[Rfam]
RNA sequence: ACCGCUGAGCCAUCUCUCCAGCCCCUGUAAUUAAUACUUUUAAGAGUUAAAAAUGUAGAGGGCUGGAGAGAUGGCUCAGCGGU
Number, nucleotide and partner (000 for none) at each position: 001a000002c082003c081004g080005c079006u078007g077008a076009g075010c074011c073012a072013u071014c070015u069016c068017u067018c066019c065020a064021g063022c062023c061024c060025c000026u000027g000028u000029a000030a000031u000032u000033a000034a000035u000036a000037c000038u000039u000040u000041u000042a000043a000044g000045a000046g000047u000048u000049a000050a000051a000052a000053a000054u000055g000056u000057a000058g000059a000060g024061g023062g022063c021064u020065g019066g018067a017068g016069a015070g014071a013072u012073g011074g010075c009076u008077c007078a006079g005080c004081g003082g002083u000